[Rfam]
RNA sequence: ACAAUGAUACUUCAAUUUAGUCACAGCCCUGCAGGGAUGCGGGAUCACGCAAUGAGAAUUGCUUCGGGGGACCGGAGGGGUUAGAGACCCAUGA
Number, nucleotide and partner (000 for none) at each position: 001a000002c000003a000004a000005u000006g000007a000008u000009a000010c000011u000012u091013c061014a060015a059016u058017u057018u056019a000020g000021u000022c000023a000024c000025a000026g000027c000028c000029c000030u000031g000032c000033a000034g000035g000036g000037a000038u000039g000040c000041g000042g000043g000044a000045u000046c000047a000048c000049g000050c000051a000052a000053u000054g000055a000056g018057a017058a016059u015060u014061g013062c077063u076064u075065c000066g073067g072068g000069g000070g000071a000072c067073c066074g000075g064076a063077g062078g090079g089080g088081u000082u000083a000084g000085a000086g000087a000088c080089c079090c078091a012092u000093g000094a000
A member of the RNA family "pemK RNA" from Hornefia porci, 94 nucleotides long.